A member of the RNA family "JUMPstart RNA" from Rahnella aquatilis, 39 nucleotides long. Taxonomically the source falls in Rahnella aquatilis (Bacteria, Pseudomonadati, Gammaproteobacteria, Yersiniaceae). The family has 128 seed sequences and 288 matches in Rfam 15.1. It is annotated as a cis-regulatory element. Pairs were carried over by alignment from the consensus structure, which is taken from published work.
RNA sequence: CAGCAUAUCGGCAGCUGUUGAGCUGAGGGCGGUAGCGUG
Numbered sequence: 001c002a003g004c005a006u007a008u009c010g011g012c013a014g015c016u017g018u019u020g021a022g023c024u025g026a027g028g029g030c031g032g033u034a035g036c037g038u039g
Stems, first nucleotide, its partner, number of pairs: 008026005